[Rfam]
RNA sequence: AUUGCCCUUCGAAUAACCAGAAGGUGAAACACAAAUCUCAUACCAUUUGCUUCAUAGUGGGCACACAUUGUUUGAAAGCCUUUUGAUGGUGAUGAACUCCAUUUCUUCAUCCUUGGUUCGUUUUCGAACAUUU
Numbered sequence: 001a002u003u004g005c006c007c008u009u010c011g012a013a014u015a016a017c018c019a020g021a022a023g024g025u026g027a028a029a030c031a032c033a034a035a036u037c038u039c040a041u042a043c044c045a046u047u048u049g050c051u052u053c054a055u056a057g058u059g060g061g062c063a064c065a066c067a068u069u070g071u072u073u074g075a076a077a078g079c080c081u082u083u084u085g086a087u088g089g090u091g092a093u094g095a096a097c098u099c100c101a102u103u104u105c106u107u108c109a110u111c112c113u114u115g116g117u118u119c120g121u122u123u124u125c126g127a128a129c130a131u132u133u
Base pairs, nucleotide, nucleotide: 003063004062005061006060007059015052016051018049019048020047021046024043025042026041073126074125075124076123077122078121080116081115085111086110087109089108092107094104095103096102
Dot-bracket structure: ..(((((.......((.((((..(((..............)))..)))).))......))))).........((((((.((...(((.(..(.(((.....)))..)))))...))....)))))).......